[Rfam]
RNA sequence: GACCACAUGGUCUAACAGAUAAAGUGUCUGACUUUGUAUUAGAAGAUUGAGGGUUGGAAUCCCUCUGUGGUUA
Numbered sequence: 001g002a003c004c005a006c007a008u009g010g011u012c013u014a015a016c017a018g019a020u021a022a023a024g025u026g027u028c029u030g031a032c033u034u035u036g037u038a039u040u041a042g043a044a045g046a047u048u049g050a051g052g053g054u055u056g057g058a059a060u061c062c063c064u065c066u067g068u069g070g071u072u073a
Stems, first nucleotide, its partner, number of pairs: 001072007010025002013022001027043005049065005
RNA: tRNA